[Rfam]
RNA: Bacteriophage Diversity-Generating Retroelement RNA
RNA sequence: GCUCUGCGCUUGCCCCGGCUGCGCAGGCAGGCCAGUCAACAUGUGGUCAGCCAGUCCUGUCCUCCUCGGGGAAUACUCAGCUUGGUUCGGCAGAACGCCUAGUAGGAAAUCCAAAAGCGCAGCCGAC
Numbered sequence: 001g002c003u004c005u006g007c008g009c010u011u012g013c014c015c016c017g018g019c020u021g022c023g024c025a026g027g028c029a030g031g032c033c034a035g036u037c038a039a040c041a042u043g044u045g046g047u048c049a050g051c052c053a054g055u056c057c058u059g060u061c062c063u064c065c066u067c068g069g070g071g072a073a074u075a076c077u078c079a080g081c082u083u084g085g086u087u088c089g090g091c092a093g094a095a096c097g098c099c100u101a102g103u104a105g106g107a108a109a110u111c112c113a114a115a116a117g118c119g120c121a122g123c124c125g126a127c
Base pairs, nucleotide, nucleotide: 001028002027004026005025006024007023008022009021012019013018063071064070065069085127087126088125089124090123091122096119097118098117105111